[Rfam]
RNA sequence: ACUGUCUGAAAAUCAUCCCUGGCCUCCUCCAGUGGCCUUGGGUGAGAUAACGGUGCAUAAAGCAAAGGGAGCAUUAAGCUUAUUGCCCAUCAGCUCAACGUGUUGGGCAAUGAAACCCAUGCUCCUAUAUGU
Number, nucleotide and partner (000 for none) at each position: 001a000002c000003u000004g000005u000006c053007u052008g051009a000010a048011a000012a000013u045014c044015a043016u042017c000018c000019c000020u000021g037022g036023c035024c034025u000026c000027c000028u000029c000030c000031a000032g000033u000034g024035g023036c022037c021038u000039u000040g000041g000042g016043u015044g014045a013046g000047a000048u010049a000050a000051c008052g007053g006054u000055g000056c000057a000058u000059a000060a000061a000062g000063c000064a000065a000066a000067g000068g125069g000070a123071g122072c121073a120074u119075u000076a000077a000078g000079c000080u113081u112082a111083u110084u109085g000086c000087c000088c102089a101090u100091c000092a000093g000094c000095u000096c000097a000098a000099c000100g090101u089102g088103u000104u000105g000106g000107g000108c000109a084110a083111u082112g081113a080114a000115a000116c000117c000118c000119a074120u073121g072122c071123u070124c000125c068126u000127a000128u000129a000130u000131g000132u000